[Rfam]
The family of this 67-nucleotide sequence from Sporosarcina limicola is "Bacillaceae-1 RNA".
The family's RNA type in Rfam is small RNA.
Nucleotides: 067
Stems, first nucleotide, its partner, number of pairs: 011049007025039005055065003
Number, partner (000 for none) and nucleotide at each position: 001000u002000a003000a004000c005000a006000a007000g008000g009000a010000a011049c012048u013047c014046a015045g016044a017043c018000u019000a020000a021000g022000a023000g024000c025039a026038u027037c028036g029035c030000a031000u032000c033000c034000u035029g036028u037027g038026a039025u040000a041000a042000c043017g044016u045015c046014u047013g048012a049011g050000u051000g052000a053000c054000c055065a056064a057063c058000a059000u060000c061000c062000u063057g064056u065055u066000a067000c